[Rfam]
RNA sequence: UUACAAUUAAGGUAGGUGAGGCUACCGCUAGAAUUAAGAUUGCCGCCGUAAAAGGAUGGAGACAUUCUGCACUGGUCAACAGUUGUUAUCGAUCAAGGUUUCAACUAGAGCAAGUUCAUGUCUAGCGAAGCUAAAGCUUGAACGUUAAAAACGU
Number, nucleotide and partner (000 for none) at each position: 001u000002u000003a000004c000005a000006a000007u148008u147009a146010a145011g143012g000013u096014a000015g138016g137017u136018g000019a000020g132021g131022c130023u000024a000025c000026c127027g126028c125029u124030a123031g122032a121033a000034u000035u000036a000037a000038g000039a000040u113041u112042g111043c110044c000045g000046c074047c000048g072049u071050a000051a000052a000053a000054g000055g066056a065057u064058g063059g000060a000061g000062a000063c058064a057065u056066u055067c000068u000069g000070c000071a049072c048073u000074g046075g000076u000077c000078a000079a000080c000081a000082g105083u104084u103085g102086u000087u000088a099089u098090c097091g000092a000093u000094c000095a000096a013097g090098g089099u088100u000101u000102c085103a084104a083105c082106u000107a000108g000109a000110g043111c042112a041113a040114g000115u000116u000117c000118a000119u000120g000121u032122c031123u030124a029125g028126c027127g026128a000129a000130g022131c021132u020133a000134a000135a000136g017137c016138u015139u000140g000141a000142a000143c011144g000145u010146u009147a008148a007149a000150a000151a000152c000153g000154u000

About this RNA:
M-box riboswitch aptamer (ykoK leader): a 154-nucleotide RNA sequence from Candidatus Galacturonatibacter soehngenii. The base pairs follow the family's consensus structure. A search with the family's covariance model found it, with a score of 93 bits. The organism belongs to Candidatus Galacturonatibacter, within Bacteria. For this family Rfam cites "New RNA motifs suggest an expanded scope for riboswitches in bacterial genetic control" (Barrick et al., Proc Natl Acad Sci U S A, 2004).